[Rfam]
RNA sequence: ACCCUGGAGCGGGAUUUUGGGGGCGAGAUGAGAUGUUUAACAGGAACCAACUGGCCCGUAAAGUCCCGCUUUUGGAA
Numbered sequence: 001a002c003c004c005u006g007g008a009g010c011g012g013g014a015u016u017u018u019g020g021g022g023g024c025g026a027g028a029u030g031a032g033a034u035g036u037u038u039a040a041c042a043g044g045a046a047c048c049a050a051c052u053g054g055c056c057c058g059u060a061a062a063g064u065c066c067c068g069c070u071u072u073u074g075g076a077a
Stems, first nucleotide, its partner, number of pairs: 003075002006072003010068004015063005021057004026052002029049002
A member of the RNA family "mir-193 microRNA precursor family" from Scyliorhinus torazame, 77 nucleotides long. The match comes from Rfam's covariance-model search (60 bits). NCBI's taxonomy places the organism under Eukaryota, Deuterostomia, Chondrichthyes, Selachii, Scyliorhinus.